[Rfam]
RNA: Purine riboswitch aptamer
Organism: Aneurinibacillus migulanus
RNA sequence: AUAAUACUGAUAUUAAUCGUUCGUAUAUCCUCGAUAAUAUGGUUUGAGGGUCUCUACAAGGGAACCAUAAAUUCCUGACUACGGAUGGGUGUUUGCUAUGC
Numbered sequence: 001a002u003a004a005u006a007c008u009g010a011u012a013u014u015a016a017u018c019g020u021u022c023g024u025a026u027a028u029c030c031u032c033g034a035u036a037a038u039a040u041g042g043u044u045u046g047a048g049g050g051u052c053u054c055u056a057c058a059a060g061g062g063a064a065c066c067a068u069a070a071a072u073u074c075c076u077g078a079c080u081a082c083g084g085a086u087g088g089g090u091g092u093u094u095g096c097u098a099u100g101c
Stems, first nucleotide, its partner, number of pairs: 018087008029049006059076003063073002